A member of the RNA family "SAM riboswitch aptamer (S box leader)" from Allobacillus sp. SKP2-8, 108 nucleotides long.
RNA sequence: UUCUUAUCAAGAGUGGCGGAGGGAACGGCCCUGUGAAGCCCGGCAACCAUCGAAUUUAUUCGAAAGGUGCUAAUUCCUGUUCAUGCUGAGUGCAUGGCAAGAUAAGAG
Numbered sequence: 001u002u003c004u005u006a007u008c009a010a011g012a013g014u015g016g017c018g019g020a021g022g023g024a025a026c027g028g029c030c031c032u033g034u035g036a037a038g039c040c041c042g043g044c045a046a047c048c049a050u051c052g053a054a055u056u057u058a059u060u061c062g063a064a065a066g067g068u069g070c071u072a073a074u075u076c077c078u079g080u081u082c083a084u085g086c087u088g089a090g091u092g093c094a095u096g097g098c099a100a101g102a103u104a105a106g107a108g
Stems, first nucleotide, its partner, number of pairs: 001108008013041001015040003021031003027077002042071004047067002050063004075100001081097006
The organism belongs to Allobacillus, within Bacteria.